A member of the RNA family "MIR1878 microRNA precursor family" from Brachypodium distachyon, 96 nucleotides long.
RNA sequence: ACUAUUGCAAACUUAGUCUGAACACUAUAAAAAAUGCUCAUGUAAAAAUAUGCGCAUCAUAGAUUUGUAGUGUUCAGAUUGAGUUUACAGUAGUUG
Number, nucleotide and partner (000 for none) at each position: 001a094002c093003u092004a091005u000006u000007g000008c000009a086010a085011a084012c083013u082014u081015a080016g079017u078018c077019u076020g075021a074022a073023c072024a071025c070026u069027a068028u067029a066030a065031a064032a000033a000034a000035u056036g055037c000038u000039c052040a051041u050042g049043u048044a000045a000046a000047a000048a043049u042050a041051u040052g039053c000054g000055c036056a035057u000058c000059a000060u000061a000062g000063a000064u031065u030066u029067g028068u027069a026070g025071u024072g023073u022074u021075c020076a019077g018078a017079u016080u015081g014082a013083g012084u011085u010086u009087a000088c000089a000090g000091u004092a003093g002094u001095u000096g000

Rfam links the family to the GO terms miRNA-mediated post-transcriptional gene silencing and RISC complex. Rfam's curators put it in the seed alignment.